This 124-nucleotide RNA sequence from Streptomyces roseolilacinus belongs to the Rfam family "Streptomyces RNA 3920". Rfam describes the family as follows. Identified by deep sequencing of transcriptome at the end of exponential growth phase. Sequencing size consistent with northern blot size. Streptomyces specific.
RNA sequence: GAUAGGCUCCUGUCGCCAGCGUGAUUGGACACUGACGUAGAGUCAACUAGCCUGGUUGAGGCCGGAUUCGGGCACACAGGCAGGACGGUCCGAGCCACGAGGGGGGAGGCUCGGACCGUCCGUU
Numbered sequence: 001g002a003u004a005g006g007c008u009c010c011u012g013u014c015g016c017c018a019g020c021g022u023g024a025u026u027g028g029a030c031a032c033u034g035a036c037g038u039a040g041a042g043u044c045a046a047c048u049a050g051c052c053u054g055g056u057u058g059a060g061g062c063c064g065g066a067u068u069c070g071g072g073c074a075c076a077c078a079g080g081c082a083g084g085a086c087g088g089u090c091c092g093a094g095c096c097a098c099g100a101g102g103g104g105g106g107a108g109g110c111u112c113g114g115a116c117c118g119u120c121c122g123u124u
Stems, first nucleotide, its partner, number of pairs: 001014005015051002018048001021032003033045004058075001060073001062071003084120013098105001
The literature on the family includes a 2011 paper in RNA Biol by Vockenhuber et al., "Deep sequencing-based identification of small non-coding RNAs in Streptomyces coelicolor". The source organism's lineage runs through Bacteria, Bacillati, Actinomycetes, Streptomycetaceae and Streptomyces. The base pairs follow the family's consensus structure.